[Rfam]
Annotation
The family of this 54-nucleotide RNA sequence from Triplophysa rosa is "UnaL2 LINE 3' element". A search with the family's covariance model found it, with a score of 56 bits. The organism belongs to Triplophysa, within Eukaryota.
RNA sequence: UGCUCUCCUACUUGUAAGUCGCUUUGGAUAAAAGAGUCUGCCAAAUGAAUAAAU
Numbered sequence: 001u002g003c004u005c006u007c008c009u010a011c012u013u014g015u016a017a018g019u020c021g022c023u024u025u026g027g028a029u030a031a032a033a034g035a036g037u038c039u040g041c042c043a044a045a046u047g048a049a050u051a052a053a054u
Stems, first nucleotide, its partner, number of pairs: 013043001014041003020036001022034004
About the family: The eel long interspersed element (LINE) UnaL2 and its partner short interspersed element (SINE) share a conserved 3' tail containing a stem-loop that is critical for their retrotransposition. Presumably, the first step of retrotransposition is the recognition of their 3' tails by UnaL2-encoded reverse transcriptase. The solution structure of a 17-nucleotide RNA derived from the 3' tail of UnaL2 was determined by NMR.